[Rfam]
Nucleotides: 184
Stems, first nucleotide, its partner, number of pairs: 015075002018072001020070003026064002031055001034052004040046002107178001109176007131155001133153001135151001
Number, partner (000 for none) and nucleotide at each position: 001000a002000c003000c004000u005000u006000c007000u008000u009000u010000a011000a012000g013000g014000u015075c016074u017000g018072u019000a020070c021069u022068a023000a024000a025000a026064u027063u028000u029000u030000a031055g032000a033000a034052a035051c036050u037049a038000g039000u040046a041045u042000c043000a044000u045041g046040u047000c048000g049037u050036g051035g052034u053000a054000g055031u056000u057000g058000a059000a060000a061000a062000u063027a064026a065000a066000g067000a068022u069021a070020g071000g072018a073000a074016a075015g076000u077000a078000a079000g080000c081000a082000c083000a084000a085000g086000a087000a088000g089000a090000a091000a092000a093000a094000a095000u096000a097000g098000c099000u100000g101000a102000a103000c104000a105000g106000c107178u108000g109176u110175a111174c112173c113172a114171g115170g116000u117000a118000g119000a120000a121000g122000a123000a124000a125000a126000a127000c128000u129000g130000a131155g132000a133153u134000a135151g136000a137000c138000c139000u140000c141000u142000u143000c144000u145000a146000a147000g148000a149000c150000a151135c152000c153133a154000g155131c156000u157000c158000u159000u160000u161000g162000u163000u164000c165000u166000a167000a168000g169000a170115u171114u172113u173112g174111g175110u176109a177000g178107a179000a180000u181000a182000a183000u184000a